[Rfam]
RNA: 5' ureB small RNA
RNA sequence: CUUCUUCGACCUGCUGGGGGCAGAUGAAGUGGAUGUGGGGGUCGAUGCCGCCGGCGGUGAGGAUUUUGCCUUCGCCGGCGAUGAUUUCGGUGCCGGGGCCGAUGACGAUGGUCACAUCCGGCUGGGUGUCGGGGUUGCCGGCUUUGCCGAUGGCGGCGAUGCGGCCGUUCUGGAUGCCGACGUCGGCUUUGACGAUGCCCCACCAGUCCAGGAUCAGGGCGUUGGUGAUGACGGUGUCCAUCACGGCGGCGUCGGCGCGCUGGCUCUGGCCCAUGCCGUCGCGGAUG
Number, nucleotide and partner (000 for none) at each position: 001c287002u000003u285004c000005u283006u000007c281008g280009a279010c000011c000012u158013g157014c156015u155016g154017g000018g076019g075020g000021c000022a072023g071024a000025u000026g000027a000028a000029g000030u053031g052032g051033a000034u050035g049036u000037g048038g000039g046040g000041g000042u000043c000044g000045a000046u039047g000048c037049c035050g034051c032052c031053g030054g000055c000056g000057g069058u068059g067060a000061g000062g000063a000064u000065u000066u000067u059068g058069c057070c000071u023072u022073c000074g000075c019076c018077g148078g147079c000080g000081a144082u000083g142084a000085u140086u000087u000088c000089g000090g138091u137092g136093c000094c134095g000096g000097g130098g129099c128100c125101g000102a000103u000104g122105a000106c120107g119108a117109u000110g000111g000112u000113c000114a000115c000116a000117u108118c000119c107120g106121g000122c104123u000124g000125g100126g000127u000128g099129u098130c097131g000132g000133g000134g094135u000136u092137g091138c090139c000140g085141g000142c083143u000144u081145u000146g000147c078148c077149g000150a000151u000152g000153g000154c016155g015156g014157c013158g012159a000160u000161g000162c000163g000164g270165c269166c268167g267168u000169u000170c000171u263172g000173g261174a000175u259176g258177c257178c000179g000180a000181c000182g000183u000184c000185g000186g220187c219188u218189u217190u216191g215192a000193c000194g000195a000196u000197g000198c000199c000200c000201c000202a000203c000204c000205a000206g000207u000208c000209c000210a000211g000212g000213a000214u000215c191216a190217g189218g188219g187220c186221g000222u000223u254224g253225g252226u000227g000228a000229u000230g247231a000232c000233g000234g244235u243236g242237u000238c000239c000240a000241u000242c236243a235244c234245g000246g000247c230248g000249g000250c000251g000252u225253c224254g223255g000256c000257g177258c176259g175260c000261u173262g000263g171264c000265u000266c000267u167268g166269g165270c164271c000272c000273a000274u000275g000276c000277c000278g000279u009280c008281g007282c000283g005284g000285a003286u000287g001